[Rfam]
RNA sequence: UGAUGACAAAUCUCCGGAAUCUCUGUAUUUACUUGAUGAAUACUUGAACCCAUUAAUCUGAUACUGACUGCAUAUUUCCUGUC
Numbered sequence: 001u002g003a004u005g006a007c008a009a010a011u012c013u014c015c016g017g018a019a020u021c022u023c024u025g026u027a028u029u030u031a032c033u034u035g036a037u038g039a040a041u042a043c044u045u046g047a048a049c050c051c052a053u054u055a056a057u058c059u060g061a062u063a064c065u066g067a068c069u070g071c072a073u074a075u076u077u078c079c080u081g082u083c
Stems, first nucleotide, its partner, number of pairs: 002083004
RNA: Small nucleolar RNA MBII-202